Description: Group II catalytic intron D1-D4-6: a 220-nucleotide RNA from Hespellia stercorisuis. Taxonomically the source falls in Hespellia stercorisuis (Bacteria, Bacillota, Lachnospiraceae, Hespellia). The base pairs follow the family's consensus structure.
[Rfam]
RNA sequence: GAAAUGUCUGCCUGGUAAGGUCUAACCAACCGCCAGUAGCGAGUCUUGGGUGACUGCCAGUAAUGGCAGUUGCUAAGCGUAGACAGCGAGAAAAUAGAGAGUGUGAUUGAGCCUCGAAAUUUUGACAUCUAGAAGGCUGACGCUUUAAUUCCAGCGGAAAGCAACACAAAUCAAAUCGUCAUGGUAAGAAAUGGUUUGCUUCUGCGGGGGGCAAAGAGCA
Numbered sequence: 001g002a003a004a005u006g007u008c009u010g011c012c013u014g015g016u017a018a019g020g021u022c023u024a025a026c027c028a029a030c031c032g033c034c035a036g037u038a039g040c041g042a043g044u045c046u047u048g049g050g051u052g053a054c055u056g057c058c059a060g061u062a063a064u065g066g067c068a069g070u071u072g073c074u075a076a077g078c079g080u081a082g083a084c085a086g087c088g089a090g091a092a093a094a095u096a097g098a099g100a101g102u103g104u105g106a107u108u109g110a111g112c113c114u115c116g117a118a119a120u121u122u123u124g125a126c127a128u129c130u131a132g133a134a135g136g137c138u139g140a141c142g143c144u145u146u147a148a149u150u151c152c153a154g155c156g157g158a159a160a161g162c163a164a165c166a167c168a169a170a171u172c173a174a175a176u177c178g179u180c181a182u183g184g185u186a187a188g189a190a191a192u193g194g195u196u197u198g199c200u201u202c203u204g205c206g207g208g209g210g211g212c213a214a215a216g217a218g219c220a
Base pairs, nucleotide, nucleotide: 012036013035014034015033019031020030021029023187025185026184039087040086043084044083045082046081047079048078049074050073051072052071053070054069055068056067057066058065059064108214109212112209113208114207115206116205130204131203132202133201134200135199136162137161138160141156142155143154144153167198168197169196170195171194172193173192176189177188